The family of this 75-nucleotide RNA sequence from Chionis minor is "mir-31 microRNA precursor family".
Pairs were carried over by alignment from the consensus structure, which was predicted with RNAalifold.
The family is grouped with related families in Rfam's "mir-31 microRNA precursor family".
Rfam 15.1 lists 1,181 matches to the family in 783 species.
On this family, see Chiang et al., Genes Dev 2010: "Mammalian microRNAs: experimental evaluation of novel and previously annotated genes".
The source organism's lineage runs through Eukaryota, Chordata, Vertebrata, Tetrapoda and Chionis.
Its family is annotated with RISC complex and gene silencing by miRNA in the Gene Ontology.
The match comes from Rfam's covariance-model search (52 bits).
[Rfam]
RNA sequence: AAAUGAAUAGUUGGCUAGGUGUAUACAGAGCUGUUUGGAAACAGCUUUGUAUAUACCUAGCCAACUAUUCCUUUU
Numbered sequence: 001a002a003a004u005g006a007a008u009a010g011u012u013g014g015c016u017a018g019g020u021g022u023a024u025a026c027a028g029a030g031c032u033g034u035u036u037g038g039a040a041a042c043a044g045c046u047u048u049g050u051a052u053a054u055a056c057c058u059a060g061c062c063a064a065c066u067a068u069u070c071c072u073u074u075u
Base pairs, nucleotide, nucleotide: 005070006069007068008067009066010065011064012063013062014061015060016059017058018057019056020055021054023052024051025050026049027048028047029046030045031044
Dot-bracket structure: ....(((((((((((((((((.(((((((((............))))))))).))))))))))))))))).....